RNA sequence: UGUCUCCUCCACCUCCUCCAAUGGUGGAUUCAGGCCCGGGGCCGCAAGGUCCCGGGCUUCUUUU
Number, nucleotide and partner (000 for none) at each position: 001u000002g000003u000004c000005u000006c000007c000008u028009c027010c026011a025012c024013c023014u000015c000016c000017u000018c000019c000020a000021a000022u000023g013024g012025u011026g010027g009028a008029u000030u000031c000032a000033g000034g057035c056036c055037c054038g053039g052040g051041g050042c000043c000044g000045c000046a000047a000048g000049g000050u041051c040052c039053c038054g037055g036056g035057c034058u000059u000060c000061u000062u000063u000064u000
Background
The record is a 64-nucleotide sequence from Rubrivivax gelatinosus, which matches "Betaproteobacteria toxic small RNA" in Rfam. Overexpression in amino aid rich medium attenuates growth, suggesting role in repressing amino acid intake and metabolism. It scores 61 bits against the family's covariance model. Taxonomically the source falls in Rubrivivax gelatinosus (Bacteria, Pseudomonadati, Betaproteobacteria, Sphaerotilaceae). For this family Rfam cites "A vast collection of microbial genes that are toxic to bacteria" (Kimelman et al., Genome Res, 2012). Pairs were carried over by alignment from the consensus structure, which was predicted with WAR.